The record is a 350-nucleotide sequence from Sulfitobacter mediterraneus, which matches "Alphaproteobacteria transfer-messenger RNA" in Rfam. Its family is annotated with RNA catabolic process in the Gene Ontology. The match comes from Rfam's covariance-model search (292 bits). About the family: Bacterial tmRNA, also known as 10Sa RNA or SsrA, is named for its dual tRNA and mRNA-like properties.
RNA sequence: CCGUUUGCAAAGCCCCAUCUGCACCACUAUAUUCAAGCUGUCCCUCGGGACUAUGAACAUAAACGCGCUCGUAAUACGCGGAUCGGACCCGGGGGCGGUACCCGGCGGCUCCACCAAACAUCCUUCAUUUGGGGAUCAUGGGGCCGAAAUAGGAUCGACGAACGUCUAAAGGGGUUAGCUUUGUUUCGGCUGUCUGCCACCGUUAUCGGCGAAAACUGUACAAUUGCAAAUGACAAUCGUGCUCCAGUAGCAAUGGCCGCGUAAGCGACCGGAGAUACUGAAAUCUUAAGUCCUAGCGCCUUGCAGCACUAGGCGGGGUUCGCAGGUACCUGGCAACAGAAACCUGCACU
Numbered sequence: 001c002c003g004u005u006u007g008c009a010a011a012g013c014c015c016c017a018u019c020u021g022c023a024c025c026a027c028u029a030u031a032u033u034c035a036a037g038c039u040g041u042c043c044c045u046c047g048g049g050a051c052u053a054u055g056a057a058c059a060u061a062a063a064c065g066c067g068c069u070c071g072u073a074a075u076a077c078g079c080g081g082a083u084c085g086g087a088c089c090c091g092g093g094g095g096c097g098g099u100a101c102c103c104g105g106c107g108g109c110u111c112c113a114c115c116a117a118a119c120a121u122c123c124u125u126c127a128u129u130u131g132g133g134g135a136u137c138a139u140g141g142g143g144c145c146g147a148a149a150u151a152g153g154a155u156c157g158a159c160g161a162a163c164g165u166c167u168a169a170a171g172g173g174g175u176u177a178g179c180u181u182u183g184u185u186u187c188g189g190c191u192g193u194c195u196g197c198c199a200c201c202g203u204u205a206u207c208g209g210c211g212a213a214a215a216c217u218g219u220a221c222a223a224u225u226g227c228a229a230a231u232g233a234c235a236a237u238c239g240u241g242c243u244c245c246a247g248u249a250g251c252a253a254u255g256g257c258c259g260c261g262u263a264a265g266c267g268a269c270c271g272g273a274g275a276u277a278c279u280g281a282a283a284u285c286u287u288a289a290g291u292c293c294u295a296g297c298g299c300c301u302u303g304c305a306g307c308a309c310u311a312g313g314c315g316g317g318g319u320u321c322g323c324a325g326g327u328a329c330c331u332g333g334c335a336a337c338a339g340a341a342a343c344c345u346g347c348a349c350u
Stems, first nucleotide, its partner, number of pairs: 040051004055186005065179002067175004079164002083161003089105005106146007187202003193212002196210003316331004322347006